Rfam assigns this 132-nucleotide sequence from Schaalia sp. 19OD2882 to the family "c-di-AMP riboswitch aptamer (ydaO/yuaA leader)". The pairing is the family consensus, mapped onto this sequence. It scores 64 bits against the family's covariance model.
RNA sequence: GGGAAGAACCGGCCUGACGCGGGGGAACCAAAUACCGGUCCGCAAGGACCUUGGGGUGAAGUCCGGGAAACCGGGCCGGACUCUCCUGUCCGAAUCCGACAGCUGACCUCGUAGGCUCAACAAGGAGAAGAC
Numbered sequence: 001g002g003g004a005a006g007a008a009c010c011g012g013c014c015u016g017a018c019g020c021g022g023g024g025g026a027a028c029c030a031a032a033u034a035c036c037g038g039u040c041c042g043c044a045a046g047g048a049c050c051u052u053g054g055g056g057u058g059a060a061g062u063c064c065g066g067g068a069a070a071c072c073g074g075g076c077c078g079g080a081c082u083c084u085c086c087u088g089u090c091c092g093a094a095u096c097c098g099a100c101a102g103c104u105g106a107c108c109u110c111g112u113a114g115g116c117u118c119a120a121c122a123a124g125g126a127g128a129a130g131a132c
Base pairs, nucleotide, nucleotide: 019112020111021110022109023108024107029053030052054097055096056095062075063074064073065072078091079090080089081088